Annotation
Rfam assigns this 65-nucleotide RNA sequence to the family "S4-Fusobacteriales ribosomal protein leader".
[Rfam]
RNA sequence: CUGUAAAGGUAUAUUUUGCUGUAGGGCAAUAUCCUCUUUUUAUCAAAGGGGAGUAUACUGAAGAG
Numbered sequence: 001c002u003g004u005a006a007a008g009g010u011a012u013a014u015u016u017u018g019c020u021g022u023a024g025g026g027c028a029a030u031a032u033c034c035u036c037u038u039u040u041u042a043u044c045a046a047a048g049g050g051g052a053g054u055a056u057a058c059u060g061a062a063g064a065g
Base pairs, nucleotide, nucleotide: 008059009058010057011056012055013054015029016028018027019026020025032052033051034050035049036048037047038046039045

By type it is a cis-regulatory leader.
On this family, see Eckert and Weinberg, BMC Microbiol 2020: "Discovery of 20 novel ribosomal leader candidates in bacteria and archaea".